[Rfam]
RNA: L2-Alphaproteobacteria ribosomal protein leader
RNA sequence: GGGGACCUUUGGGGCCCUAAACACCGGCGGUCUAUAAAGACACGCUAAGCAAACGGAAGACAGAAA
Numbered sequence: 001g002g003g004g005a006c007c008u009u010u011g012g013g014g015c016c017c018u019a020a021a022c023a024c025c026g027g028c029g030g031u032c033u034a035u036a037a038a039g040a041c042a043c044g045c046u047a048a049g050c051a052a053a054c055g056g057a058a059g060a061c062a063g064a065a066a
Stems, first nucleotide, its partner, number of pairs: 001018004006014003026046004030041004